[Rfam]
RNA sequence: CCUGUCAACUACAGGCUGGGAUGUGAACCGACGGCGGGUUUCCCGCCUCAUACUGGUGACUAUAAGAGCGUGGAAAAUUCCGACCCUACGGGGGUCGGAUAUUCACACAAAUUUAUAGCCACCAGUAUCAGUGGUGGCGAAGCCACCCAGGGUUUGAACCACACA
Numbered sequence: 001c002c003u004g005u006c007a008a009c010u011a012c013a014g015g016c017u018g019g020g021a022u023g024u025g026a027a028c029c030g031a032c033g034g035c036g037g038g039u040u041u042c043c044c045g046c047c048u049c050a051u052a053c054u055g056g057u058g059a060c061u062a063u064a065a066g067a068g069c070g071u072g073g074a075a076a077a078u079u080c081c082g083a084c085c086c087u088a089c090g091g092g093g094g095u096c097g098g099a100u101a102u103u104c105a106c107a108c109a110a111a112u113u114u115a116u117a118g119c120c121a122c123c124a125g126u127a128u129c130a131g132u133g134g135u136g137g138c139g140a141a142g143c144c145a146c147c148c149a150g151g152g153u154u155u156g157a158a159c160c161a162c163a164c165a
Base pairs, nucleotide, nucleotide: 001015002014003013004012005011017161018160019159025155026154027153028152029151

Shown here is a 165-nucleotide RNA, a member of the family "eL15-Euryarchaeota ribosomal protein leader". It is annotated as a cis-regulatory leader. The base pairs follow the family's consensus structure, which is taken from published work.